antisense RNA of dnaA mRNA: an 81-nucleotide RNA from Vibrio ostreae.
RNA sequence: UUUAGCGUUCGGGUUGUUAUCCACGAUAGCAUUGCCGACCGCAUGCAGCAGGUGAGUUUUACCCAGGCCGGUACCACCGUA
Dot-bracket structure: ....(((.((((...((..(........).))..)))).)))........((((.((...(((......)))))))))...

The family's consensus secondary structure was predicted with RNAfold. It scores 66 bits against the family's covariance model.